The record is a 70-nucleotide RNA from Donacobius atricapilla, which matches "Small nucleolar RNA SNORD63" in Rfam. Lineage of the source: Eukaryota > Sarcopterygii > Dipnotetrapodomorpha > Amniota > Donacobius. It is annotated as a C/D-box small nucleolar RNA. Its family is annotated with nucleolus and RNA processing in the Gene Ontology. snoRNA U63 is found in both humans and mice. On this family, see Galardi et al., Mol Cell Biol 2002: "Purified box C/D snoRNPs are able to reproduce site-specific 2'-O-methylation of target RNA in vitro". The family's consensus secondary structure was predicted with PFOLD.
[Rfam]
RNA sequence: GUGCCAUGAUGUUAAAACUGUCAACACAUCAUUCUGAAGAAUUGUGUGGAGACUCUGUGAACUGAGCGCA
Numbered sequence: 001g002u003g004c005c006a007u008g009a010u011g012u013u014a015a016a017a018c019u020g021u022c023a024a025c026a027c028a029u030c031a032u033u034c035u036g037a038a039g040a041a042u043u044g045u046g047u048g049g050a051g052a053c054u055c056u057g058u059g060a061a062c063u064g065a066g067c068g069c070a
Base pairs, nucleotide, nucleotide: 001069002068003067004066